[Rfam]
RNA: Y RNA
Organism: Microcebus murinus
RNA sequence: GGCUGGUCCAAAGGUAGUGAGUUAUCUCACUUGAUUGUUUAUAGAUAUAGAUUGAACUCCUUGUUCUACUACUUUCCCCCCUUCUCACUAUUGCACUUGACUAGUCUAUA
Numbered sequence: 001g002g003c004u005g006g007u008c009c010a011a012a013g014g015u016a017g018u019g020a021g022u023u024a025u026c027u028c029a030c031u032u033g034a035u036u037g038u039u040u041a042u043a044g045a046u047a048u049a050g051a052u053u054g055a056a057c058u059c060c061u062u063g064u065u066c067u068a069c070u071a072c073u074u075u076c077c078c079c080c081c082u083u084c085u086c087a088c089u090a091u092u093g094c095a096c097u098u099g100a101c102u103a104g105u106c107u108a109u110a
Stems, first nucleotide, its partner, number of pairs: 001106008010098002014094002016089006039071001043067002